[Rfam]
RNA sequence: GAUAAUGUUCUUAUAGGGCAGGUCGGCUAAUCCCCUUUUGAAAGGGGGUGAUGCCUUUGAGUAUGUAUGAAAGCUUUGUCGUGUUGUUUUCGUUUGGCACGUUCAUUCUUUCUUUGCUCGCUUUGAUCAUCACUUUGAUCAAUAGAAAAUAGACCUCCCUAUUACCCUCUAAGUGAUUAGGUGAGGUCUAUCCCGAAAUGAUAGCCGAUCCUAGCUUUAGGAACCGCUUAUCCAGCCCCGCAGUUGCUGCUGCGGGG
Number, nucleotide and partner (000 for none) at each position: 001g232002a231003u230004a229005a228006u000007g225008u223009u208010c207011u164012u000013a162014u161015a160016g159017g158018g157019c000020a000021g154022g000023u152024c000025g000026g000027c000028u051029a000030a049031u000032c047033c046034c045035c044036u043037u000038u000039u000040g000041a000042a000043a036044g035045g034046g033047g032048g000049u030050g000051a028052u000053g000054c000055c000056u000057u000058u000059g121060a000061g119062u000063a000064u116065g115066u000067a000068u000069g000070a000071a000072a087073g000074c000075u000076u000077u000078g000079u000080c000081g000082u000083g000084u000085u000086g000087u072088u000089u000090u000091c000092g000093u000094u000095u000096g113097g112098c000099a110100c000101g000102u000103u000104c000105a000106u000107u000108c000109u000110u099111u000112c097113u096114u000115u065116g064117c000118u000119c061120g000121c059122u000123u000124u000125g000126a000127u000128c000129a000130u000131c000132a000133c000134u000135u000136u000137g000138a000139u000140c000141a000142a000143u000144a000145g000146a000147a000148a000149a000150u000151a000152g023153a000154c021155c000156u000157c018158c017159c016160u015161a014162u013163u000164a011165c000166c000167c000168u000169c000170u000171a000172a000173g000174u195175g194176a000177u000178u000179a000180g000181g000182u000183g000184a000185g000186g000187u000188c000189u000190a000191u000192c000193c000194c175195g174196a000197a000198a000199u000200g000201a000202u000203a000204g000205c000206c000207g010208a009209u222210c221211c220212u219213a000214g000215c000216u000217u000218u000219a212220g211221g210222a209223a008224c000225c007226g000227c000228u005229u004230a003231u002232c001233c000234a000235g000236c257237c256238c255239c254240g253241c252242a251243g250244u249245u000246g000247c000248u000249g244250c243251u242252g241253c240254g239255g238256g237257g236